[Rfam]
RNA: U2 spliceosomal RNA
RNA sequence: AUACCUUUCUCGAUCUUCUAGCUAAGAUAAGUGUAGUAUCUGCUCUUAUCAAUUUAAUAUUUGAUACGUGAGUCAUCGACCUAUUAUGAUGUUAAAUUAAUUUCUUGUGGGGGGAGGGUUUACGGUAGUGGCUUGCCAUUGGGACCCUCACUUGUCGCCCAUGCGUUGCACUGCAAGCACGGGCCUGGCGCUCCCCAA
Numbered sequence: 001a002u003a004c005c006u007u008u009c010u011c012g013a014u015c016u017u018c019u020a021g022c023u024a025a026g027a028u029a030a031g032u033g034u035a036g037u038a039u040c041u042g043c044u045c046u047u048a049u050c051a052a053u054u055u056a057a058u059a060u061u062u063g064a065u066a067c068g069u070g071a072g073u074c075a076u077c078g079a080c081c082u083a084u085u086a087u088g089a090u091g092u093u094a095a096a097u098u099a100a101u102u103u104c105u106u107g108u109g110g111g112g113g114g115a116g117g118g119u120u121u122a123c124g125g126u127a128g129u130g131g132c133u134u135g136c137c138a139u140u141g142g143g144a145c146c147c148u149c150a151c152u153u154g155u156c157g158c159c160c161a162u163g164c165g166u167u168g169c170a171c172u173g174c175a176a177g178c179a180c181g182g183g184c185c186u187g188g189c190g191c192u193c194c195c196c197a198a
Stems, first nucleotide, its partner, number of pairs: 008027003012023001014021001047066006068084003072080003114149008128139004153190005159182002162179003